[Rfam]
RNA sequence: CCCAAGGGGUCUCGCGACCACCCCGUGAGACUUUGGUCUAAGGUUCGCAUCCACUGACCUUUUCAGAAAGGAUGCCUUAUG
Numbered sequence: 001c002c003c004a005a006g007g008g009g010u011c012u013c014g015c016g017a018c019c020a021c022c023c024c025g026u027g028a029g030a031c032u033u034u035g036g037u038c039u040a041a042g043g044u045u046c047g048c049a050u051c052c053a054c055u056g057a058c059c060u061u062u063u064c065a066g067a068a069a070g071g072a073u074g075c076c077u078u079a080u081g
Stems, first nucleotide, its partner, number of pairs: 006024005047075006